[Rfam]
RNA: Small Cajal body specific RNA 16
RNA sequence: GUGGGCUGGGGAAGGGCUGCUGGGUGGUGGGGCCAGCAGGCCCAGCCUCGUCCCAGCCAGUCUGACCCGUGCCCGAGAUCAGCUCCCAGGUGGGCUCCGUGCUGGGGCUCACCUGUGCAGUAACAGGUGUGAGCAUUCAUGAAGCAUUCUGAUGGUCAUGUAUGAUACUGCAUACAACA
Numbered sequence: 001g002u003g004g005g006c007u008g009g010g011g012a013a014g015g016g017c018u019g020c021u022g023g024g025u026g027g028u029g030g031g032g033c034c035a036g037c038a039g040g041c042c043c044a045g046c047c048u049c050g051u052c053c054c055a056g057c058c059a060g061u062c063u064g065a066c067c068c069g070u071g072c073c074c075g076a077g078a079u080c081a082g083c084u085c086c087c088a089g090g091u092g093g094g095c096u097c098c099g100u101g102c103u104g105g106g107g108c109u110c111a112c113c114u115g116u117g118c119a120g121u122a123a124c125a126g127g128u129g130u131g132a133g134c135a136u137u138c139a140u141g142a143a144g145c146a147u148u149c150u151g152a153u154g155g156u157c158a159u160g161u162a163u164g165a166u167a168c169u170g171c172a173u174a175c176a177a178c179a
Stems, first nucleotide, its partner, number of pairs: 003074004008068003015062004019057004024053001026047003030043001032041003085106003090100003114174009124164002130158003134154004141148002